[Rfam]
RNA sequence: CUGCAGGGAUGAUGUAAAAAUGAACUCUCUCUUUCUGAUGGUUCAGUGGAGAAAUUUUACUAAUUUCUGAGUGGC
Number, nucleotide and partner (000 for none) at each position: 001c074002u073003g072004c071005a000006g000007g000008g000009a000010u000011g000012a000013u000014g000015u000016a000017a000018a000019a000020a000021u000022g000023a000024a000025c000026u000027c000028u000029c000030u000031c000032u000033u000034u000035c000036u000037g000038a000039u000040g000041g000042u000043u000044c000045a000046g000047u000048g000049g000050a000051g000052a000053a000054a000055u000056u000057u000058u000059a000060c000061u000062a000063a000064u000065u000066u000067c000068u000069g000070a000071g004072u003073g002074g001075c000
The family of this 75-nucleotide RNA sequence from Ornithorhynchus anatinus is "Small nucleolar RNA SNORD26". Rfam 15.1 lists 451 matches to the family in 401 species. A reference for the family is Tycowski et al. (1996), "A small nucleolar RNA requirement for site-specific ribose methylation of rRNA in Xenopus", Proc Natl Acad Sci U S A. By type it is a C/D-box small nucleolar RNA.